The record is a 106-nucleotide sequence from Populus alba, which matches "MIR474 microRNA precursor family" in Rfam.

RNA sequence: UUUAAAAGUUCUUGGGUCUAGUUGGGUAGUCGGACUCAAAGCUACUGAAUAUUGCUAACAACGCUAUUGAGUCUUACUAAGCUAGAUCCAACAAUACUUUUUGACU
Numbered sequence: 001u002u003u004a005a006a007a008g009u010u011c012u013u014g015g016g017u018c019u020a021g022u023u024g025g026g027u028a029g030u031c032g033g034a035c036u037c038a039a040a041g042c043u044a045c046u047g048a049a050u051a052u053u054g055c056u057a058a059c060a061a062c063g064c065u066a067u068u069g070a071g072u073c074u075u076a077c078u079a080a081g082c083u084a085g086a087u088c089c090a091a092c093a094a095u096a097c098u099u100u101u102u103g104a105c106u
Stems, first nucleotide, its partner, number of pairs: 001104002004101006012091012025078005032052001034050001036048003056070001057068002
About this RNA:
Rfam links the family to the GO terms RISC complex and miRNA-mediated post-transcriptional gene silencing. A reference for the family is Lu et al. (2005), "Novel and mechanical stress-responsive MicroRNAs in Populus trichocarpa that are absent from Arabidopsis", Plant Cell. The base pairs follow the family's consensus structure, which was predicted with WAR. NCBI's taxonomy places the organism under Eukaryota, Spermatophyta, Mesangiospermae, Malpighiales, Populus.